[Rfam]
RNA sequence: GUUUUUCUGAAAUAAAUACUCACUUUUACCGUCACGCUUGCCAGGGUGACUGUGCCGUACGUAUUGCGGCGGGUUGGCAGGCGGGGUAAAGGGAGGCGUAAC
Dot-bracket structure: ......................((((((((....(((((((((....(.(((.................))).)))))))))).))))))))..........

Rfam assigns this 102-nucleotide sequence from Methylomicrobium album to the family "t44 RNA".
A reference for the family is Tjaden et al. (2002), "Transcriptome analysis of Escherichia coli using high-density oligonucleotide probe arrays", Nucleic Acids Res.
The match comes from Rfam's covariance-model search (61 bits).